A member of the RNA family "Mammalian CPEB3 ribozyme" from Crocodylus porosus, 76 nucleotides long. Lineage of the source: Eukaryota > Eumetazoa > Archelosauria > Archosauria > Crocodylus. About the family: The mammalian CPEB3 ribozyme is a self cleaving RNA located in the second intron of the CPEB3 gene which belongs to a family of genes regulating messenger RNA polyadenylation.
[Rfam]
RNA sequence: GGUGGCAAGUUCAAGGCCAUAGCAGAAGUGCUCAUGGCGCAGCCUGUCAGAUUCCUAUGAAUUUAUGAAUUCUGCU
Numbered sequence: 001g002g003u004g005g006c007a008a009g010u011u012c013a014a015g016g017c018c019a020u021a022g023c024a025g026a027a028g029u030g031c032u033c034a035u036g037g038c039g040c041a042g043c044c045u046g047u048c049a050g051a052u053u054c055c056u057a058u059g060a061a062u063u064u065a066u067g068a069a070u071u072c073u074g075c076u
Stems, first nucleotide, its partner, number of pairs: 015044003021076007028040003049064006